[Rfam]
RNA sequence: CCGUAGCCAGGGCGGCCUUCUGGGGGAUCUGGACACUGAUAAGCCGGUAGUGCAGUGACACGGGAAAACACCGGCAGCC
Numbered sequence: 001c002c003g004u005a006g007c008c009a010g011g012g013c014g015g016c017c018u019u020c021u022g023g024g025g026g027a028u029c030u031g032g033a034c035a036c037u038g039a040u041a042a043g044c045c046g047g048u049a050g051u052g053c054a055g056u057g058a059c060a061c062g063g064g065a066a067a068a069c070a071c072c073g074g075c076a077g078c079c
Base pairs, nucleotide, nucleotide: 001015002014003013004012007032008031009030010029011028016023017022034057035056036055037054038053043075044074045073046072047071

A member of the RNA family "Proteo-phage-1 RNA" from Pseudomonas asplenii, 79 nucleotides long. NCBI's taxonomy places the organism under Bacteria, Pseudomonadota, Gammaproteobacteria, Pseudomonadaceae, Pseudomonas. Rfam classes the family as a small RNA. Pairs were carried over by alignment from the consensus structure, which is taken from published work.